[Rfam]
The family of this 102-nucleotide sequence from Terrihalobacillus insolitus is "PyrR binding site". Lineage of the source: Bacteria > Bacillati > Caryophanales > Bacillaceae > Terrihalobacillus. Pairs were carried over by alignment from the consensus structure, which is taken from published work. About the family: This family represents the PyrR binding site and terminator structure.

RNA sequence: AGAACCUUUAAGACAGUCCCGUGAGGCUGAGAAGGAAGCGGAUAAAACUGGUUAUACGUAUAUCCAACCCCUUUUUUCUUCAUGGAGAAAAGGGGUUUUAUA
Numbered sequence: 001a002g003a004a005c006c007u008u009u010a011a012g013a014c015a016g017u018c019c020c021g022u023g024a025g026g027c028u029g030a031g032a033a034g035g036a037a038g039c040g041g042a043u044a045a046a047a048c049u050g051g052u053u054a055u056a057c058g059u060a061u062a063u064c065c066a067a068c069c070c071c072u073u074u075u076u077u078c079u080u081c082a083u084g085g086a087g088a089a090a091a092g093g094g095g096u097u098u099u100a101u102a
Stems, first nucleotide, its partner, number of pairs: 005035005014029005042063003046059001049056002066097014